[Rfam]
RNA sequence: UUCUUUCACCCACCCGUACCCGGCAGGAGCGGGGGACCCAGGCAACACGCCGUGACCGGGAUUUCCCCGGGCGGCUCGGGGUGAAGCCGUGUCCUCGACACGGCCGGGCACCUCCAGCCCGAACCCGACAGCUCACCUCGUAGGCGACGGAGAGGAAUU
Numbered sequence: 001u002u003c004u005u006u007c008a009c010c011c012a013c014c015c016g017u018a019c020c021c022g023g024c025a026g027g028a029g030c031g032g033g034g035g036a037c038c039c040a041g042g043c044a045a046c047a048c049g050c051c052g053u054g055a056c057c058g059g060g061a062u063u064u065c066c067c068c069g070g071g072c073g074g075c076u077c078g079g080g081g082u083g084a085a086g087c088c089g090u091g092u093c094c095u096c097g098a099c100a101c102g103g104c105c106g107g108g109c110a111c112c113u114c115c116a117g118c119c120c121g122a123a124c125c126c127g128a129c130a131g132c133u134c135a136c137c138u139c140g141u142a143g144g145c146g147a148c149g150g151a152g153a154g155g156a157a158u159u
Stems, first nucleotide, its partner, number of pairs: 011146001013144002019027002029141006039078001079126003087103004106120004